Rfam assigns this 242-nucleotide RNA sequence from Pongo abelii to the family "bip internal ribosome entry site (IRES)". Rfam links the family to the GO term ribosome binding. The organism belongs to Pongo, within Eukaryota. Rfam describes the family as follows. This family represents the bip internal ribosome entry site (IRES). BiP protein expression has been found to be significantly enhanced by the heat shock response due to IRES-dependent translation. On this family, see Kim and Jang, Biochem Biophys Res Commun 2002: "Continuous heat shock enhances translational initiation directed by internal ribosomal entry site". The match comes from Rfam's covariance-model search (275 bits).

[Rfam]
RNA sequence: UGCCGGCCGAGACAGCACAGACAGACCAACCGAUUGGGGUGUUUCGUGAGUGUGAGAGGUAAGCGCCACGGCCUGCAUUUCCAGACCUGCCCUUCGCCUGGUUCGUGGCGCCUUGUGACCCCUGCCACCUGCAAGUCGGUAACCGCGCUGCGCUCCUGUGCUGCGGCCUGUGGCUGGACUGCCUGCUGCUUGCCCGACUGGCUGGCAAGAUGAAGCUCUCCCUGGUGGCCGUGAUGCUGCUG
Numbered sequence: 001u002g003c004c005g006g007c008c009g010a011g012a013c014a015g016c017a018c019a020g021a022c023a024g025a026c027c028a029a030c031c032g033a034u035u036g037g038g039g040u041g042u043u044u045c046g047u048g049a050g051u052g053u054g055a056g057a058g059g060u061a062a063g064c065g066c067c068a069c070g071g072c073c074u075g076c077a078u079u080u081c082c083a084g085a086c087c088u089g090c091c092c093u094u095c096g097c098c099u100g101g102u103u104c105g106u107g108g109c110g111c112c113u114u115g116u117g118a119c120c121c122c123u124g125c126c127a128c129c130u131g132c133a134a135g136u137c138g139g140u141a142a143c144c145g146c147g148c149u150g151c152g153c154u155c156c157u158g159u160g161c162u163g164c165g166g167c168c169u170g171u172g173g174c175u176g177g178a179c180u181g182c183c184u185g186c187u188g189c190u191u192g193c194c195c196g197a198c199u200g201g202c203u204g205g206c207a208a209g210a211u212g213a214a215g216c217u218c219u220c221c222c223u224g225g226u227g228g229c230c231g232u233g234a235u236g237c238u239g240c241u242g
Base pairs, nucleotide, nucleotide: 004231005230006229007228008227009226015161016160017159018158019157020156034124036122037121038120039119040118063111064110065109066108067107068106069105070104071103164176165175166174167173168172